Overview: Alphaproteobacteria transfer-messenger RNA: a 363-nucleotide sequence from Limoniibacter endophyticus. The base pairs follow the family's consensus structure, which is taken from published work. NCBI's taxonomy places the organism under Bacteria, Pseudomonadota, Alphaproteobacteria, Bartonellaceae, Limoniibacter. Rfam links the family to the GO term RNA catabolic process. For this family Rfam cites "Phylogenetic analysis of tmRNA secondary structure" (Williams and Bartel, RNA, 1996).

RNA sequence: CCCCUUUUCAAACGCCGCCAUGUCACCUAUAUGACCUUUGCCGGCUCGUUCCGGCUAUGGCGAUAAAUGGUCAUUGUAAUAAGCCUAUCGGACCCGGGGGCAGUACCCGGCGCCUCCACCAGGAACCGACGUUUCACCAAUGUCGGCUGCUGCUGGGGGCGAGUCAGGAUCGACGAGGGUGUAAAGAGUGUGCUUUCGCUCGGUAUGGUAGCCGCCGUUAUCGGACCAAAACUGUAGUUGCAAACGACAACUAUGCGGAAGCACGUCUCGCUGCUUAAUGCAGUGCGAUAGCUUCAAAUCAAGCCCUACGGGUUCGCACCUUUAGGCGGGGUUCGGAGGUACCUGGCAACAGAAACCUCCACU
Numbered sequence: 001c002c003c004c005u006u007u008u009c010a011a012a013c014g015c016c017g018c019c020a021u022g023u024c025a026c027c028u029a030u031a032u033g034a035c036c037u038u039u040g041c042c043g044g045c046u047c048g049u050u051c052c053g054g055c056u057a058u059g060g061c062g063a064u065a066a067a068u069g070g071u072c073a074u075u076g077u078a079a080u081a082a083g084c085c086u087a088u089c090g091g092a093c094c095c096g097g098g099g100g101c102a103g104u105a106c107c108c109g110g111c112g113c114c115u116c117c118a119c120c121a122g123g124a125a126c127c128g129a130c131g132u133u134u135c136a137c138c139a140a141u142g143u144c145g146g147c148u149g150c151u152g153c154u155g156g157g158g159g160c161g162a163g164u165c166a167g168g169a170u171c172g173a174c175g176a177g178g179g180u181g182u183a184a185a186g187a188g189u190g191u192g193c194u195u196u197c198g199c200u201c202g203g204u205a206u207g208g209u210a211g212c213c214g215c216c217g218u219u220a221u222c223g224g225a226c227c228a229a230a231a232c233u234g235u236a237g238u239u240g241c242a243a244a245c246g247a248c249a250a251c252u253a254u255g256c257g258g259a260a261g262c263a264c265g266u267c268u269c270g271c272u273g274c275u276u277a278a279u280g281c282a283g284u285g286c287g288a289u290a291g292c293u294u295c296a297a298a299u300c301a302a303g304c305c306c307u308a309c310g311g312g313u314u315c316g317c318a319c320c321u322u323u324a325g326g327c328g329g330g331g332u333u334c335g336g337a338g339g340u341a342c343c344u345g346g347c348a349a350c351a352g353a354a355a356c357c358u359c360c361a362c363u
Stems, first nucleotide, its partner, number of pairs: 040055005059200005069193001072190004084179003088176003094110005111161007201217004206228003212224002329344004335360006